RNA: tRNA
Organism: Propionibacterium freudenreichii
RNA sequence: CGGGGUGUGGCGCAGUUGGUAGCGCGCCUGCUUUGGGAGCAGGAAGUCGCCGGUUCGAGUCCGGUCACCCCGA
Numbered sequence: 001c002g003g004g005g006u007g008u009g010g011c012g013c014a015g016u017u018g019g020u021a022g023c024g025c026g027c028c029u030g031c032u033u034u035g036g037g038a039g040c041a042g043g044a045a046g047u048c049g050c051c052g053g054u055u056c057g058a059g060u061c062c063g064g065u066c067a068c069c070c071c072g073a
Stems, first nucleotide, its partner, number of pairs: 001072007010025004027043005049065005